[Rfam]
RNA sequence: GCAAAUGCGGGCGAGAAACCCGCACGCCGAAAGCCCAAGGUUUCCUCAGUAAAGGUAAUCUUCUGAGGGUUAGUCGGUCCCUAAGGCGAGGCCGAAAGGCGUAGUUGAUGGGAAACAGGUUAAUAUUCCUGUACCUCUUGUAACUGCGAUGGGGGGACGGAGAAGGGUAGGUCAGCCGGUUAUUGGAUUUCCGGUUUAAGCGUGUAGGCGGGGGAGGUAGGCAAAUCCGCUUCCCUGUAUAACGCUGAGGCGUGAUGACGAGGGCUUAAAGCCCAUAAAGUGAUUGAUCCCAUGCUUCCAAGAAAAGCCUCUAAGCUUCAGGUUACAAGAGACCGUACCGCAAACCAACCCAGGUGGGCGGGCAGAAAAUGCUAAGGCGAU
Number, nucleotide and partner (000 for none) at each position: 001g000002c000003a000004a000005a000006u024007g023008c022009g021010g020011g019012c000013g000014a000015g000016a000017a000018a000019c011020c010021c009022g008023c007024a006025c379026g378027c377028c376029g000030a000031a000032a000033g359034c358035c357036c356037a000038a000039g339040g338041u000042u000043u000044c068045c067046u066047c065048a064049g063050u000051a000052a000053a061054g060055g000056u000057a000058a000059u000060c054061u053062u000063c049064u048065g047066a046067g045068g044069g000070u000071u000072a000073g000074u000075c335076g334077g333078u332079c000080c111081c110082u000083a000084a000085g106086g105087c104088g000089a102090g000091g100092c099093c098094g000095a000096a000097a000098g093099g092100c091101g000102u089103a000104g087105u086106u085107g000108a000109u000110g081111g080112g000113a000114a000115a132116c131117a130118g129119g128120u000121u000122a000123a000124u000125a000126u000127u000128c119129c118130u117131g116132u115133a000134c000135c331136u330137c329138u328139u327140g326141u325142a324143a323144c322145u321146g316147c315148g000149a000150u000151g311152g310153g309154g308155g000156g000157a000158c000159g298160g297161a296162g295163a000164a000165g291166g290167g289168u000169a000170g285171g284172u283173c282174a281175g195176c194177c193178g192179g191180u000181u000182a000183u000184u000185g000186g000187a000188u000189u000190u000191c179192c178193g177194g176195u175196u258197u257198a000199a000200g253201c252202g251203u250204g000205u000206a000207g246208g245209c244210g000211g000212g235213g234214g233215a232216g231217g230218u229219a000220g228221g227222c000223a000224a000225a000226u000227c221228c220229g218230c217231u216232u215233c214234c213235c212236u000237g000238u000239a000240u000241a000242a000243c000244g209245c208246u207247g000248a000249g000250g203251c202252g201253u200254g000255a000256u000257g197258a196259c000260g000261a276262g000263g274264g273265c000266u271267u000268a000269a000270a000271g266272c000273c264274c263275a000276u261277a000278a000279a000280g000281u174282g173283a172284u171285u170286g000287a000288u000289c167290c166291c165292a000293u000294g000295c162296u161297u160298c159299c000300a000301a000302g000303a000304a000305a000306a000307g000308c154309c153310u152311c151312u000313a000314a000315g147316c146317u000318u000319c000320a000321g145322g144323u143324u142325a141326c140327a139328a138329g137330a136331g135332a078333c077334c076335g075336u000337a000338c040339c039340g000341c000342a000343a000344a000345c354346c353347a000348a000349c000350c000351c000352a000353g346354g345355u000356g036357g035358g034359c033360g000361g373362g372363c371364a370365g000366a000367a000368a000369a000370u364371g363372c362373u361374a000375a000376g028377g027378c026379g025380a000381u000

This 381-nucleotide part of an RNA from Trichloromonas acetexigens belongs to the Rfam family "Bacterial large subunit ribosomal RNA".
Its family is annotated with structural constituent of ribosome and ribosome in the Gene Ontology.
A reference for the family is Yusupov et al. (2001), "Crystal structure of the ribosome at 5.5 A resolution", Science.
The match comes from Rfam's covariance-model search (2999 bits).